[Rfam]
RNA sequence: GCGAUAGUGAUAGCAAUACCUCAUAUAUGUUUAGGGAUAUGGCCUAGACGUUUCUACCCGGUAACCAUAAAUUACUGGACUAUGAAGGGAAGCUGUUCGGUU
Number, nucleotide and partner (000 for none) at each position: 001g000002c000003g000004a000005u000006a000007g000008u000009g000010a000011u000012a000013g000014c000015a000016a000017u000018a000019c087020c000021u085022c084023a083024u082025a081026u000027a000028u000029g049030u048031u047032u046033a045034g044035g043036g000037a000038u000039a000040u000041g000042g000043c035044c034045u033046a032047g031048a030049c029050g000051u000052u000053u000054c000055u000056a000057c000058c078059c077060g076061g075062u074063a073064a072065c000066c000067a000068u000069a000070a000071a000072u064073u063074a062075c061076u060077g059078g058079a000080c000081u025082a024083u023084g022085a021086a000087g019088g000089g000090a000091a000092g000093c000094u000095g000096u000097u000098c000099g000100g000101u000102u000
Rfam assigns this 102-nucleotide sequence from Bacillus taeanensis to the family "Purine riboswitch aptamer". The organism belongs to Bacillus, within Bacteria. It scores 78 bits against the family's covariance model. Clan: Purine riboswitches.